[Rfam]
RNA sequence: GGCGAUAAAUUUCGUAUGGAAUAAGCAUUAUGGACCCGGGGGCGGUACCCGGCAUCUCCACCAAUAAAAUACUGGGGAUGAAAUAGGCUCGACAUGUGUAGUAAAGAUAUUGUUUUCGCUCGGCAUGGUACCACCGAUAUCGGACUAGACACUAUAAAUGUCGAAAGAAAAAAACUAGCAGUGGCUAACGACAAUGUCGUUAUCCUUGCUUCUGCUGUUAA
Numbered sequence: 001g002g003c004g005a006u007a008a009a010u011u012u013c014g015u016a017u018g019g020a021a022u023a024a025g026c027a028u029u030a031u032g033g034a035c036c037c038g039g040g041g042g043c044g045g046u047a048c049c050c051g052g053c054a055u056c057u058c059c060a061c062c063a064a065u066a067a068a069a070u071a072c073u074g075g076g077g078a079u080g081a082a083a084u085a086g087g088c089u090c091g092a093c094a095u096g097u098g099u100a101g102u103a104a105a106g107a108u109a110u111u112g113u114u115u116u117c118g119c120u121c122g123g124c125a126u127g128g129u130a131c132c133a134c135c136g137a138u139a140u141c142g143g144a145c146u147a148g149a150c151a152c153u154a155u156a157a158a159u160g161u162c163g164a165a166a167g168a169a170a171a172a173a174a175c176u177a178g179c180a181g182u183g184g185c186u187a188a189c190g191a192c193a194a195u196g197u198c199g200u201u202a203u204c205c206u207u208g209c210u211u212c213u214g215c216u217g218u219u220a221a
Stems, first nucleotide, its partner, number of pairs: 001120005014110004026098003030095003036052005053080007121136003
The record is a 221-nucleotide sequence from an Alphaproteobacteria bacterium, which matches "permuted transfer-messenger RNA" in Rfam. For this family Rfam cites "Phylogenetic analysis of tmRNA secondary structure" (Williams and Bartel, RNA, 1996). It is annotated as a non-coding RNA gene. Pairs were carried over by alignment from the consensus structure, which is taken from published work. NCBI's taxonomy places the organism under Bacteria, Pseudomonadati, Pseudomonadota, Alphaproteobacteria. Rfam's curators put it in the seed alignment.